[Rfam]
RNA: MIR9563 microRNA precursor family
RNA sequence: AAAAUAUAAGAAACUAUUUUUUAACUUUUAACUAAAAAAACUAAGAAUCGGUUCUUAAAUAAGGUUUUUAAGAACCGGUUCUUAGUUUUUUUAGUUAAAAGUUGAAAAAUAAUUUCUUAUAUUUC
Numbered sequence: 001a002a003a004a005u006a007u008a009a010g011a012a013a014c015u016a017u018u019u020u021u022u023a024a025c026u027u028u029u030a031a032c033u034a035a036a037a038a039a040a041c042u043a044a045g046a047a048u049c050g051g052u053u054c055u056u057a058a059a060u061a062a063g064g065u066u067u068u069u070a071a072g073a074a075c076c077g078g079u080u081c082u083u084a085g086u087u088u089u090u091u092u093a094g095u096u097a098a099a100a101g102u103u104g105a106a107a108a109a110u111a112a113u114u115u116c117u118u119a120u121a122u123u124u125c
Base pairs, nucleotide, nucleotide: 002124003123004122005121006120007119008118009117010116011115012114013113015111016110017109018108019107020106021105022104023103024102025101026100027099028098029097030096031095032094033093034092035091036090037089038088039087041085042084043083044082045081046080047079